Rfam assigns this 290-nucleotide sequence from Candida albicans to the family "Group I catalytic intron".
The source organism's lineage runs through Eukaryota, Opisthokonta, Dikarya, Saccharomycotina and Candida.
RNA sequence: CGCUAGGGAUAAACUGUUAGUCCCUUUAUAUAGAGAUAUAUAGAAUAACAAUCGGGUGAAUUGCAAGAAUAUCACCCACCUCCUUUGGAGGUGGGUGACAAUUUGCAGCGAAGUAUAUAUUAGCUUAAUAAUAAAAUAUUAUUUAGAUAUAUAAACGUUCAACGACUAGAAGGUGAGUAAGCUAACAAUAACCCUUCCACGAGCGCCCGACAUCUUAAUGAACCAACAAUUACAAUUAAUUAAAGGUCAUUAUGAUGAUGACAUAGUCUGAACUAAAUAGUGAUAUUUAG
Numbered sequence: 001c002g003c004u005a006g007g008g009a010u011a012a013a014c015u016g017u018u019a020g021u022c023c024c025u026u027u028a029u030a031u032a033g034a035g036a037u038a039u040a041u042a043g044a045a046u047a048a049c050a051a052u053c054g055g056g057u058g059a060a061u062u063g064c065a066a067g068a069a070u071a072u073c074a075c076c077c078a079c080c081u082c083c084u085u086u087g088g089a090g091g092u093g094g095g096u097g098a099c100a101a102u103u104u105g106c107a108g109c110g111a112a113g114u115a116u117a118u119a120u121u122a123g124c125u126u127a128a129u130a131a132u133a134a135a136a137u138a139u140u141a142u143u144u145a146g147a148u149a150u151a152u153a154a155a156c157g158u159u160c161a162a163c164g165a166c167u168a169g170a171a172g173g174u175g176a177g178u179a180a181g182c183u184a185a186c187a188a189u190a191a192c193c194c195u196u197c198c199a200c201g202a203g204c205g206c207c208c209g210a211c212a213u214c215u216u217a218a219u220g221a222a223c224c225a226a227c228a229a230u231u232a233c234a235a236u237u238a239a240u241u242a243a244a245g246g247u248c249a250u251u252a253u254g255a256u257g258a259u260g261a262c263a264u265a266g267u268c269u270g271a272a273c274u275a276a277a278u279a280g281u282g283a284u285a286u287u288u289a290g
Stems, first nucleotide, its partner, number of pairs: 005025006012018002052210004057205002062107006072098012108158002122144002162269001164268005213255002216252006275288005
For this family Rfam cites "Crystal structure of a group I ribozyme domain: principles of RNA packing" (Cate et al., Science, 1996).